[Rfam]
Nucleotides: 072
Stems, first nucleotide, its partner, number of pairs: 003070002006067001008063001010061010021050003025046002028043004
Number, partner (000 for none) and nucleotide at each position: 001000c002000u003070u004069g005000g006067g007000g008063g009000g010061g011060g012059g013058g014057u015056c016055c017054c018053u019052c020000a021050g022049c023048c024000u025046g026045g027000a028043u029042u030041g031040c032000a033000a034000g035000a036000g037000g038000g039000a040031g041030c042029a043028g044000g045026u046025c047000a048023g049022g050021c051000c052019g053018a054017g055016g056015g057014a058013c059012c060011c061010c062000a063008c064000u065000g066000g067006u068000g069004c070003a071000c072000a